The family of this 250-nucleotide sequence from Populus deltoides is "RNase MRP".
RNA sequence: UCUCGCCAUGAGCUGGAGUGAGCGGGUCUAUAGAUGACCCAGGAAAGUCCCCGGGCCCUACUCCGCAGAAAUGCGGUCCUGGAAACAGGAACGCUCUGCGCCACGAACCUGCCUGCCCCCGUGCAGAAGGCUGAGACAAGUGUGGAGCCUAUAGGUUCGUUGCCCAGGUAACUUGGCUAAUUGUUACAGUUAUUCACUCGAGUCCACAACACUGUGGGCCAACAGAACGGGGCUUACAUCUCAUGGCGUC
Numbered sequence: 001u002c003u004c005g006c007c008a009u010g011a012g013c014u015g016g017a018g019u020g021a022g023c024g025g026g027u028c029u030a031u032a033g034a035u036g037a038c039c040c041a042g043g044a045a046a047g048u049c050c051c052c053g054g055g056c057c058c059u060a061c062u063c064c065g066c067a068g069a070a071a072u073g074c075g076g077u078c079c080u081g082g083a084a085a086c087a088g089g090a091a092c093g094c095u096c097u098g099c100g101c102c103a104c105g106a107a108c109c110u111g112c113c114u115g116c117c118c119c120c121g122u123g124c125a126g127a128a129g130g131c132u133g134a135g136a137c138a139a140g141u142g143u144g145g146a147g148c149c150u151a152u153a154g155g156u157u158c159g160u161u162g163c164c165c166a167g168g169u170a171a172c173u174u175g176g177c178u179a180a181u182u183g184u185u186a187c188a189g190u191u192a193u194u195c196a197c198u199c200g201a202g203u204c205c206a207c208a209a210c211a212c213u214g215u216g217g218g219c220c221a222a223c224a225g226a227a228c229g230g231g232g233c234u235u236a237c238a239u240c241u242c243a244u245g246g247c248g249u250c
Stems, first nucleotide, its partner, number of pairs: 004248008016199006024040004045235003049232004064075004077090005093169002100163002103160003117155002128150004138143001202219006
Rfam's curators write: RNase MRP is an enzymatically active ribonucleoprotein with two distinct roles in eukaryotes. In mitochondria it plays a direct role in the initiation of mitochondrial DNA replication. In the nucleus it is involved in precursor rRNA processing, where it cleaves the internal transcribed spacer 1 between 18S and 5.8S rRNAs. Lineage of the source: Eukaryota > Gunneridae > Pentapetalae > Saliceae > Populus.